This 90-nucleotide sequence from Peptoniphilus duerdenii belongs to the Rfam family "Selenocysteine transfer RNA".
NCBI's taxonomy places the organism under Bacteria, Bacillati, Tissierellia, Peptoniphilaceae, Peptoniphilus duerdenii.
Clan: tRNA clan.
RNA sequence: GGGGGAGAAUGAGUGUCUGGUGUGCUCCGCGGUCUUCAAAACCGUUGUAAGAAAGUUUUUCUUUGGUAGGUUCGAUUCCUACUCUUCCUC
Numbered sequence: 001g002g003g004g005g006a007g008a009a010u011g012a013g014u015g016u017c018u019g020g021u022g023u024g025c026u027c028c029g030c031g032g033u034c035u036u037c038a039a040a041a042c043c044g045u046u047g048u049a050a051g052a053a054a055g056u057u058u059u060u061c062u063u064u065g066g067u068a069g070g071u072u073c074g075a076u077u078c079c080u081a082c083u084c085u086u087c088c089u090c
Base pairs, nucleotide, nucleotide: 001090002089003088004087005086006085007084008083011027012026013025014024015023017022029045030044031043032042033041049063050062051061052060067081068080069079070078